RNA sequence: UUGACCGUGAGGUCUGGUCUGGAGGAAGCCGGACGCAAAACUGCGAGCUGAUGAACAAAAACAUCAUAUGAGGCGUAGGCUGAAGGCGAGAUGGCACAAGACAUCGAAGCCGCGUGAUCCAACGGCCACCGUAAAUGAUGCAGUUGCGCAGGGACAGUUCAUGCU
Numbered sequence: 001u002u003g004a005c006c007g008u009g010a011g012g013u014c015u016g017g018u019c020u021g022g023a024g025g026a027a028g029c030c031g032g033a034c035g036c037a038a039a040a041c042u043g044c045g046a047g048c049u050g051a052u053g054a055a056c057a058a059a060a061a062c063a064u065c066a067u068a069u070g071a072g073g074c075g076u077a078g079g080c081u082g083a084a085g086g087c088g089a090g091a092u093g094g095c096a097c098a099a100g101a102c103a104u105c106g107a108a109g110c111c112g113c114g115u116g117a118u119c120c121a122a123c124g125g126c127c128a129c130c131g132u133a134a135a136u137g138a139u140g141c142a143g144u145u146g147c148g149c150a151g152g153g154a155c156a157g158u159u160c161a162u163g164c165u
Stems, first nucleotide, its partner, number of pairs: 001016001003014004028165001030163002035158002041151005046145005062140006073132003076128001078127005085111003090105004
Description: Group II catalytic intron D1-D4-3: a 165-nucleotide sequence.